[Rfam]
Nucleotides: 113
Stems, first nucleotide, its partner, number of pairs: 007059006015049002020046002022043001023040005060086010088108001090111001094106003
Number, partner (000 for none) and nucleotide at each position: 001000a002000g003000a004000g005000u006000u007059g008058g009057c010056g011055g012054c013000u014000a015049g016048g017000g018000u019000u020046c021045c022043g023040g024039c025038u026037u027036c028000a029000a030000u031000c032000a033000a034000c035000g036027g037026a038025a039024g040023c041000g042000a043022c044000c045021g046020g047000u048016c049015c050000g051000a052000g053000a054012g055011c056010c057009g058008c059007c060086a061085c062084u063083c064082g065081u066080g067079c068078g069077g070000c071000a072000g073000a074000c075000a076000u077069u078068c079067g080066c081065a082064c083063g084062a085061g086060u087000g088108c089000a090111c091000g092000g093000c094106g095105g096104g097000a098000c099000a100000a101000a102000a103000g104096c105095c106094c107000g108088g109000g110000a111090g112000a113000c
A member of the RNA family "Guanidine-I riboswitch aptamer" from Microvirga aerophila, 113 nucleotides long. NCBI's taxonomy places the organism under Bacteria, Pseudomonadati, Pseudomonadota, Alphaproteobacteria, Microvirga. A search with the family's covariance model found it, with a score of 95 bits.